[Rfam]
RNA sequence: UGCUUUUCUCUUUGGUUAUCUAGCUGUAUGAGUGAUGUCAAUGCAUCAUAAAGCUAGGUUACCAAAGAUAAGUGCCU
Dot-bracket structure: .(.(.((.((((((((.((((((((.(((((..............))))).)))))))).)))))))).))..).).
This 77-nucleotide RNA from Strongylocentrotus purpuratus belongs to the Rfam family "mir-9/mir-79 microRNA precursor family". A reference for the family is Lagos-Quintana et al. (2001), "Identification of novel genes coding for small expressed RNAs", Science. Rfam links the family to the GO terms miRNA-mediated post-transcriptional gene silencing and RISC complex.